[Rfam]
RNA sequence: AGACAUCAAGGCCCGCGUCAUAAACUUCCCAUAUGAUUUCCCAUAUGGGAGUUUAUGACUUAGGCUUCGUUGCCU
Numbered sequence: 001a002g003a004c005a006u007c008a009a010g011g012c013c014c015g016c017g018u019c020a021u022a023a024a025c026u027u028c029c030c031a032u033a034u035g036a037u038u039u040c041c042c043a044u045a046u047g048g049g050a051g052u053u054u055a056u057g058a059c060u061u062a063g064g065c066u067u068c069g070u071u072g073c074c075u
Stems, first nucleotide, its partner, number of pairs: 001075002004072002007069001009067005017059010028049008
Dot-bracket structure: ((.((.(.(((((...((((((((((.((((((((......))))))))))))))))))...))))).).)).))